[Rfam]
RNA sequence: UGUCGAUAAAGGCAAAACCGGCGAAAGCCGGUGACGCAAAGCUACAGGGGCUAAAGCGAAUUUUCGCCAUGCCAGCCAGCUGCCGAA
Numbered sequence: 001u002g003u004c005g006a007u008a009a010a011g012g013c014a015a016a017a018c019c020g021g022c023g024a025a026a027g028c029c030g031g032u033g034a035c036g037c038a039a040a041g042c043u044a045c046a047g048g049g050g051c052u053a054a055a056g057c058g059a060a061u062u063u064u065c066g067c068c069a070u071g072c073c074a075g076c077c078a079g080c081u082g083c084c085g086a087a
Stems, first nucleotide, its partner, number of pairs: 012037002017032006040081004047077002049073003056067004